[Rfam]
RNA sequence: AACAGAACGCAGAGGGACUGCAUUGCAGUUGAGAAGGUUAAAACCUGACUCUUUGAACCUGUCAGUUAAUACUGUCGUAGGGAGCGGAAGAUAUGUGUAU
Numbered sequence: 001a002a003c004a005g006a007a008c009g010c011a012g013a014g015g016g017a018c019u020g021c022a023u024u025g026c027a028g029u030u031g032a033g034a035a036g037g038u039u040a041a042a043a044c045c046u047g048a049c050u051c052u053u054u055g056a057a058c059c060u061g062u063c064a065g066u067u068a069a070u071a072c073u074g075u076c077g078u079a080g081g082g083a084g085c086g087g088a089a090g091a092u093a094u095g096u097g098u099a100u
Stems, first nucleotide, its partner, number of pairs: 008086003011052004016046001017029005036045003058081004063074003
RNA: TPP riboswitch aptamer (THI element)
Organism: Lachnospiraceae bacterium A2